[Rfam]
RNA sequence: GGUCAUGAGUGCCAGCAACGAGCCCCGGCUAGCUGGCCGGCAACCCUCCACCGCGGUGGGGUGCCCCGGGUGAUGACCUGGUUUCCUGAUUCACACAACAGUCGGGUGACAAGCGCGGGUC
Numbered sequence: 001g002g003u004c005a006u007g008a009g010u011g012c013c014a015g016c017a018a019c020g021a022g023c024c025c026c027g028g029c030u031a032g033c034u035g036g037c038c039g040g041c042a043a044c045c046c047u048c049c050a051c052c053g054c055g056g057u058g059g060g061g062u063g064c065c066c067c068g069g070g071u072g073a074u075g076a077c078c079u080g081g082u083u084u085c086c087u088g089a090u091u092c093a094c095a096c097a098a099c100a101g102u103c104g105g106g107u108g109a110c111a112a113g114c115g116c117g118g119g120u121c
Base pairs, nucleotide, nucleotide: 001078002077003076004075009038011037012036013035014034015033016032021030022029039065040064041063044061045060046059048056049055081110082109083108085106086105087104088103089102090101
The family of this 121-nucleotide RNA sequence from Rhodococcus jostii is "SAM (S-adenosyl methionine) riboswitch aptamer". Rfam links the family to the GO terms S-adenosylmethionine metabolic process and regulation of gene expression. The sequence is in the family's curated seed alignment. Rfam describes the family as follows. SAM-IV is a mRNA element that regulates gene expression via direct sensing of S-adenosylmethionine (SAM or AdoMet). SAM-IV riboswitches share conserved nucleotide positions with the previously described SAM-I riboswitches sequence analysis and molecular recognition experiments suggest that SAM-I and SAM-IV riboswitches share similar ligand binding sites, but have different scaffolds.